This 41-nucleotide sequence from Peribacillus loiseleuriae belongs to the Rfam family "Ribosomal protein L19 leader". Rfam describes the family as follows. This family is a putative r-protein leader autoregulatory structure found in B. subtilis and other low-GC Gram-positive bacteria. It is located in the 5' untranslated regions of mRNAs encoding ribosomal protein L19 (rplS). Taxonomically the source falls in Peribacillus (Bacteria, Bacillota, Bacilli, Caryophanales). Rfam classes the family as a cis-regulatory leader. On this family, see Zengel and Lindahl, Prog Nucleic Acid Res Mol Biol 1994: "Diverse mechanisms for regulating ribosomal protein synthesis in Escherichia coli". It scores 47 bits against the family's covariance model.

[Rfam]
RNA sequence: ACGAUGUUCCGCUGCAACGCUAAUGUUGGCAAGAGCAUCCG
Numbered sequence: 001a002c003g004a005u006g007u008u009c010c011g012c013u014g015c016a017a018c019g020c021u022a023a024u025g026u027u028g029g030c031a032a033g034a035g036c037a038u039c040c041g
Base pairs, nucleotide, nucleotide: 003039004038005037006036007035008034009033013031014030015028016027017026018025